[Rfam]
RNA sequence: CCGCUCUGGAAAGCGAUCCCCUCGGGGGUCCGCCGACGGUGAAAGCCGGGUUCGCCCGGUGAAACUCUCAGGCCCAAGACAGAGGGGGA
Numbered sequence: 001c002c003g004c005u006c007u008g009g010a011a012a013g014c015g016a017u018c019c020c021c022u023c024g025g026g027g028g029u030c031c032g033c034c035g036a037c038g039g040u041g042a043a044a045g046c047c048g049g050g051u052u053c054g055c056c057c058g059g060u061g062a063a064a065c066u067c068u069c070a071g072g073c074c075c076a077a078g079a080c081a082g083a084g085g086g087g088g089a
Stems, first nucleotide, its partner, number of pairs: 001087002004084005015030004032073003035069002039067001041065001045060005
Shown here is an 89-nucleotide sequence from Microbacterium sp. Yaish 1, a member of the family "Glycine riboswitch aptamer". Gene Ontology term of the family: glycine biosynthetic process. A search with the family's covariance model found it, with a score of 44 bits.